[Rfam]
RNA sequence: ACCUAAGGUAGAGGUGCUGUACUUAAUAGUACUAAUAUAUAGCUGGCGAGCAAUUAUAUGUUGGGAAAGGAAUUAUGGCCGAAGGUAAUUUAUAGGCAUAUGAAUUAUCUGGACUUAUGCAAAAUAUGUAUAAGGCUGUCACUUUUAUUCGUAGAAGCAAAUAUAACAAUAGACCUGUUUUCACGUCUGUUGGUUAUAUGAGCAAAACGGAUUUUUCUAUAAGUGUUGAGCUACAAGGUUU
Numbered sequence: 001a002c003c004u005a006a007g008g009u010a011g012a013g014g015u016g017c018u019g020u021a022c023u024u025a026a027u028a029g030u031a032c033u034a035a036u037a038u039a040u041a042g043c044u045g046g047c048g049a050g051c052a053a054u055u056a057u058a059u060g061u062u063g064g065g066a067a068a069g070g071a072a073u074u075a076u077g078g079c080c081g082a083a084g085g086u087a088a089u090u091u092a093u094a095g096g097c098a099u100a101u102g103a104a105u106u107a108u109c110u111g112g113a114c115u116u117a118u119g120c121a122a123a124a125u126a127u128g129u130a131u132a133a134g135g136c137u138g139u140c141a142c143u144u145u146u147a148u149u150c151g152u153a154g155a156a157g158c159a160a161a162u163a164u165a166a167c168a169a170u171a172g173a174c175c176u177g178u179u180u181u182c183a184c185g186u187c188u189g190u191u192g193g194u195u196a197u198a199u200g201a202g203c204a205a206a207a208c209g210g211a212u213u214u215u216u217c218u219a220u221a222a223g224u225g226u227u228g229a230g231c232u233a234c235a236a237g238g239u240u241u
Stems, first nucleotide, its partner, number of pairs: 008234004016079006023072002032064008083110012111137002114134008140225005
RNA: Lysine riboswitch aptamer